[Rfam]
Shown here is a 54-nucleotide RNA from Eoetvoesiella caeni, a member of the family "sul1 RNA".

RNA sequence: AGUGGACUCGGCAGCGCCGGGUGGCUCGGCCGGGCGCCUAUCCCUCGGAAACUC
Numbered sequence: 001a002g003u004g005g006a007c008u009c010g011g012c013a014g015c016g017c018c019g020g021g022u023g024g025c026u027c028g029g030c031c032g033g034g035c036g037c038c039u040a041u042c043c044c045u046c047g048g049a050a051a052c053u054c
Stems, first nucleotide, its partner, number of pairs: 006022006030048005
Dot-bracket structure: .....((((((.....)))))).......(((((.........)))))......